[Rfam]
RNA sequence: AUCAGGGCUAGAGUCACUCUUGGGUAUCAGCUACUGCCUGAGUGCAGUGGAGUCCUCCAAAAGUAACUGCUGACCUUAGUCACUGGCUGUGGCCCUCACGACACAGUCGCUAGGUUAGUGACAUGC
Numbered sequence: 001a002u003c004a005g006g007g008c009u010a011g012a013g014u015c016a017c018u019c020u021u022g023g024g025u026a027u028c029a030g031c032u033a034c035u036g037c038c039u040g041a042g043u044g045c046a047g048u049g050g051a052g053u054c055c056u057c058c059a060a061a062a063g064u065a066a067c068u069g070c071u072g073a074c075c076u077u078a079g080u081c082a083c084u085g086g087c088u089g090u091g092g093c094c095c096u097c098a099c100g101a102c103a104c105a106g107u108c109g110c111u112a113g114g115u116u117a118g119u120g121a122c123a124u125g126c
Base pairs, nucleotide, nucleotide: 002059005056006055007053008052009051012048017044019042020041023038024037025036026035070118071117072116073115074114075113076112082107083106084105085104086102088100089099090098091097092096